[Rfam]
Nucleotides: 073
Stems, first nucleotide, its partner, number of pairs: 012069002015066001016064014
Number, partner (000 for none) and nucleotide at each position: 001000a002000g003000c004000c005000g006000a007000g008000g009000u010000u011000u012069u013068c014000c015066u016064c017063u018062g019061c020060a021059g022058u023057u024056a025055a026054c027053u028052g029051c030000a031000g032000c033000c034000u035000a036000u037000u038000u039000u040000a041000u042000c043000u044000u045000u046000c047000u048000u049000c050000g051029g052028c053027a054026g055025u056024u057023a058022a059021c060020u061019g062018c063017a064016g065000a066015g067000u068013g069012g070000g071000u072000a073000u
This 73-nucleotide sequence from Medicago truncatula belongs to the Rfam family "MIR2629 microRNA precursor family". The source organism's lineage runs through Eukaryota, Embryophyta, rosids, Papilionoideae and Medicago. A search with the family's covariance model found it, with a score of 61 bits. Pairs were carried over by alignment from the consensus structure, which was predicted with RNAalifold.